THF (Tetrahydrofolate) riboswitch aptamer: a 95-nucleotide RNA from Lacrimispora saccharolytica. Tetrahydrofolate (THF) riboswitch was first reported for Ames et al. as an RNA motif in 5' untranslated (5'-UTR)regions of folate transport and biosynthesis genes in Firmicutes genomes. Gene Ontology term of the family: tetrahydrofolate metabolic process. Lineage of the source: Bacteria > Clostridia > Lachnospirales > Lacrimispora > Lacrimispora saccharolytica. The base pairs follow the family's consensus structure, which is taken from published work. Rfam 15.1 lists 747 matches to the family in 747 species.
RNA sequence: GUUAGAGUAGGGACAGUGCGUUAAGUACCGAAGGAUGGGAAGUUGUCUUUGGGCGAAAGGCUUGAUGCUUGCGGUGCUGUCCCGCAUCCGCUACC
Numbered sequence: 001g002u003u004a005g006a007g008u009a010g011g012g013a014c015a016g017u018g019c020g021u022u023a024a025g026u027a028c029c030g031a032a033g034g035a036u037g038g039g040a041a042g043u044u045g046u047c048u049u050u051g052g053g054c055g056a057a058a059g060g061c062u063u064g065a066u067g068c069u070u071g072c073g074g075u076g077c078u079g080u081c082c083c084g085c086a087u088c089c090g091c092u093a094c095c
Stems, first nucleotide, its partner, number of pairs: 001095001003093003010083009019073003025054002028052007038089003042085001058070004